[Rfam]
RNA: mir-317 microRNA precursor family
RNA sequence: CUCGGAGAACAGGGAGCCACUCUGCGUUCACUCGGUAAGUAAAGAAGCGGGUGAACACAGCUGGUGGUAUCUCAGUUUUCUGAGGGC
Numbered sequence: 001c002u003c004g005g006a007g008a009a010c011a012g013g014g015a016g017c018c019a020c021u022c023u024g025c026g027u028u029c030a031c032u033c034g035g036u037a038a039g040u041a042a043a044g045a046a047g048c049g050g051g052u053g054a055a056c057a058c059a060g061c062u063g064g065u066g067g068u069a070u071c072u073c074a075g076u077u078u079u080c081u082g083a084g085g086g087c
Base pairs, nucleotide, nucleotide: 005079006078007077008076012073013071014070016068017067019065020064021063022060023059024058026056028054029053